ZMP/ZTP riboswitch aptamer (pfl RNA motif): an 81-nucleotide RNA sequence from Paenibacillus solanacearum.
[Rfam]
RNA sequence: UUUGAAGUGUGCGACUGGCGUAAACGUGGAGUACCACGAGGAAGCACAUGGGAUCAUAAGCCGUACGCCUGGGCAAAGUAU
Numbered sequence: 001u002u003u004g005a006a007g008u009g010u011g012c013g014a015c016u017g018g019c020g021u022a023a024a025c026g027u028g029g030a031g032u033a034c035c036a037c038g039a040g041g042a043a044g045c046a047c048a049u050g051g052g053a054u055c056a057u058a059a060g061c062c063g064u065a066c067g068c069c070u071g072g073g074c075a076a077a078g079u080a081u
Stems, first nucleotide, its partner, number of pairs: 003053001007049006015041002017069005026037004060074003
Overview
The literature on the family includes a 2015 paper in Nat Struct Mol Biol by Jones and Ferre-D'Amare, "Recognition of the bacterial alarmone ZMP through long-distance association of two RNA subdomains". The organism belongs to Paenibacillus, within Bacteria.